Description:
Shown here is a 160-nucleotide sequence from Tyzzerella sp. An114, a member of the family "glmS glucosamine-6-phosphate activated ribozyme aptamer". The source organism's lineage runs through Bacteria, Bacillati, Clostridia, Lachnospiraceae and Tyzzerella. It scores 81 bits against the family's covariance model. Rfam describes the family as follows. This entry contains a glucosamine-6-phosphate activated ribozyme that is found in the mRNA for GlmS. GlmS is an enzyme that uses fructose-6-phosphate and glutamine to generate glucosamine-6-phosphate. The ribozyme catalyses self cleavage of the glmS mRNA that is thought to regulate GlmS activity.

RNA sequence: UUGUAUUUUUAAGCGCCAGAGCCAUAGUGCAGAUAUUGGCUGACGAGGUGGAAGUUAUCGAAGUUUUCGGCGGAUGCUUCCCGCCCAUUAGCACAGGGACGCAGGUCUUUAACAAAGAGUUUGAGAAAUCGGGCUUACAAAAUAAAGAUAACGUGCUAAU
Number, nucleotide and partner (000 for none) at each position: 001u000002u000003g000004u000005a000006u000007u000008u000009u000010u000011a000012a000013g000014c000015g000016c000017c000018a000019g000020a041021g040022c039023c038024a037025u035026a000027g000028u000029g000030c000031a000032g000033a000034u000035a025036u000037u024038g023039g022040c021041u020042g000043a000044c000045g000046a000047g000048g000049u000050g081051g080052a079053a078054g077055u000056u000057a000058u070059c069060g068061a067062a000063g000064u000065u000066u000067u061068c060069g059070g058071c000072g000073g000074a000075u000076g000077c054078u053079u052080c051081c050082c101083g100084c000085c098086c097087a000088u000089u000090a000091g000092c000093a000094c000095a000096g000097g086098g085099a000100c083101g082102c000103a000104g000105g149106u148107c147108u146109u145110u144111a000112a000113c000114a000115a000116a000117g000118a135119g134120u133121u132122u131123g130124a129125g000126a000127a000128a000129u124130c123131g122132g121133g120134c119135u118136u000137a000138c000139a000140a000141a000142a000143u000144a110145a109146a108147g107148a106149u105150a000151a000152c000153g000154u000155g000156c000157u000158a000159a000160u000
By type it is a riboswitch.